[Rfam]
RNA sequence: GUAAGCAACCCCGGUCUGAAGACACGGGGCUUCAGCAAAUAAACUGAAGCCGUGCUUACCCGCCUAAGUCUUAAUUGACUACGUUAUUGGGGUCAUAACACCGAAGAAUGCGACGCUAGUUUUCCGCUCUGUUGUUUGCAGUUAAAUAGUCUUAAGGUCACUGAGACAGUGCUGCCAGCGUAAAAAGCCCUGAUAACAUUGGCAAAGCGAACUUUAC
Numbered sequence: 001g002u003a004a005g006c007a008a009c010c011c012c013g014g015u016c017u018g019a020a021g022a023c024a025c026g027g028g029g030c031u032u033c034a035g036c037a038a039a040u041a042a043a044c045u046g047a048a049g050c051c052g053u054g055c056u057u058a059c060c061c062g063c064c065u066a067a068g069u070c071u072u073a074a075u076u077g078a079c080u081a082c083g084u085u086a087u088u089g090g091g092g093u094c095a096u097a098a099c100a101c102c103g104a105a106g107a108a109u110g111c112g113a114c115g116c117u118a119g120u121u122u123u124c125c126g127c128u129c130u131g132u133u134g135u136u137u138g139c140a141g142u143u144a145a146a147u148a149g150u151c152u153u154a155a156g157g158u159c160a161c162u163g164a165g166a167c168a169g170u171g172c173u174g175c176c177a178g179c180g181u182a183a184a185a186a187g188c189c190c191u192g193a194u195a196a197c198a199u200u201g202g203c204a205a206a207g208c209g210a211a212c213u214u215u216a217c
Stems, first nucleotide, its partner, number of pairs: 001059007010029002012026002015022002030049006062203003066199001067080004083197011098132002102126002105123005110213001114209004134179003138175005146170002149167006
RNA: HNH endonuclease-associated RNA and ORF (HEARO) RNA